[Rfam]
The family of this 173-nucleotide sequence from Lachnospiraceae bacterium MD335 is "Lysine riboswitch aptamer".

RNA sequence: UACGGGGAUAGAGGUCGCGUUUUUUAAAAGUACCUUUUAGGAGGUGUCAGGCACUGAUGAGGAGAGGGGAAAGGAAAGGACGCCGAAAGCGGGGACUGCCUGGGGGUUCUUGUCUUGGGCAUGCGGUUAAGAGCCGUAUGACUGUCAUCGUCAGAUGGAGCGCUAUCGUUUUA
Dot-bracket structure: ......(((((.....(((((((((.......((((((........................))))))......)))))))))...(((((((((((.......)))))))).)))((.((((((((.....)))))))).)).(((((....)))))....)))))......
Rfam links the family to the GO term lysine biosynthetic process.